About this RNA: The record is a 58-nucleotide sequence from Rubrivivax gelatinosus, which matches "COG3860 RNA" in Rfam. Taxonomically the source falls in Rubrivivax gelatinosus (Bacteria, Pseudomonadota, Sphaerotilaceae, Rubrivivax).

[Rfam]
RNA sequence: UGGUCGGCAGAUCACCCAGGCGUCGCCGCGCGGCCUCUACCGCGAGCUAAACCUGCCU
Numbered sequence: 001u002g003g004u005c006g007g008c009a010g011a012u013c014a015c016c017c018a019g020g021c022g023u024c025g026c027c028g029c030g031c032g033g034c035c036u037c038u039a040c041c042g043c044g045a046g047c048u049a050a051a052c053c054u055g056c057c058u
Stems, first nucleotide, its partner, number of pairs: 002016003029044004